[Rfam]
RNA sequence: UGCAAUAGAUUCGGCUAUCAAGGGUGGUCGGCACAUCUCCUAAGAGAGGAGGUGAUGCCGUGGAAGUAAAGGAUGCUUUGACAUUGAUGUUCAUGUUUGGUAUGUUCAUCCUUUCCUUGCUUUCCUACUUAAAAAAGAAGUAAGACCUCCCUUGAGCUUGGAGGCCAGGAGGUCUUACUUCUUGCCUUUAUUAUUAGUAGCCGACUGCCAUUGAGGCAAUCUGUUGUACUGGCCGCAGUUAUUCUGCGG
Numbered sequence: 001u002g003c004a005a006u007a008g009a010u011u012c013g014g015c016u017a018u019c020a021a022g023g024g025u026g027g028u029c030g031g032c033a034c035a036u037c038u039c040c041u042a043a044g045a046g047a048g049g050a051g052g053u054g055a056u057g058c059c060g061u062g063g064a065a066g067u068a069a070a071g072g073a074u075g076c077u078u079u080g081a082c083a084u085u086g087a088u089g090u091u092c093a094u095g096u097u098u099g100g101u102a103u104g105u106u107c108a109u110c111c112u113u114u115c116c117u118u119g120c121u122u123u124c125c126u127a128c129u130u131a132a133a134a135a136a137g138a139a140g141u142a143a144g145a146c147c148u149c150c151c152u153u154g155a156g157c158u159u160g161g162a163g164g165c166c167a168g169g170a171g172g173u174c175u176u177a178c179u180u181c182u183u184g185c186c187u188u189u190a191u192u193a194u195u196a197g198u199a200g201c202c203g204a205c206u207g208c209c210a211u212u213g214a215g216g217c218a219a220u221c222u223g224u225u226g227u228a229c230u231g232g233c234c235g236c237a238g239u240u241a242u243u244c245u246g247c248g249g
Stems, first nucleotide, its partner, number of pairs: 001228005007222004011204006018155007026146001028144001034054002037051005062124007075090002099116002102113001167187003206218004233249006
A member of the RNA family "BsrG" from Tepidibacillus fermentans, 249 nucleotides long. bsrE, bsrG and bsrH pair through intermolecular interactions with antisense sRNAs. They form type I toxin/antitoxin system that includes an mRNA encoding for a short, toxic peptide (bsrE, bsrG and bsrH) and an antitoxin that is comprised of an antisense RNA. bsrG encodes a 39-amino-acid toxin, and the 180 nucleotide antisense sRNA called SR4 acts as the antitoxin (they overlap by 123 nucleotides). The family's RNA type in Rfam is small RNA.